[Rfam]
RNA sequence: UGCGAUACCCCAUCAAAAGAGUAGCUCCCCAUCUAGGAGCUAAUUCACCAUAUUAUGAAUUC
Numbered sequence: 001u002g003c004g005a006u007a008c009c010c011c012a013u014c015a016a017a018a019g020a021g022u023a024g025c026u027c028c029c030c031a032u033c034u035a036g037g038a039g040c041u042a043a044u045u046c047a048c049c050a051u052a053u054u055a056u057g058a059a060u061u062c
Base pairs, nucleotide, nucleotide: 019045020044022042023041024040025039026038027037028036

The family of this 62-nucleotide sequence from Rhodamnia argentea is "Plastid-psbN 5UTR RNA". The source organism's lineage runs through Eukaryota, Streptophyta, Embryophyta, Tracheophyta and Rhodamnia. Rfam classes the family as a cis-regulatory element. On this family, see Zhelyazkova et al., Plant Cell 2012: "The primary transcriptome of barley chloroplasts: numerous noncoding RNAs and the dominating role of the plastid-encoded RNA polymerase".